[Rfam]
RNA: c-di-GMP-I riboswitch aptamer
RNA sequence: AAGUGAAAAAGGCAAACCAUUGGGAAACCAUGGGGCGCAAAGCCAAGGGCCUGAAACAUGUAGAUUUACAUGAAGGUAGCCGGUUGCCACA
Numbered sequence: 001a002a003g004u005g006a007a008a009a010a011g012g013c014a015a016a017c018c019a020u021u022g023g024g025a026a027a028c029c030a031u032g033g034g035g036c037g038c039a040a041a042g043c044c045a046a047g048g049g050c051c052u053g054a055a056a057c058a059u060g061u062a063g064a065u066u067u068a069c070a071u072g073a074a075g076g077u078a079g080c081c082g083g084u085u086g087c088c089a090c091a
Stems, first nucleotide, its partner, number of pairs: 012038002017033004022029002041085004047081002049077003056071001059068001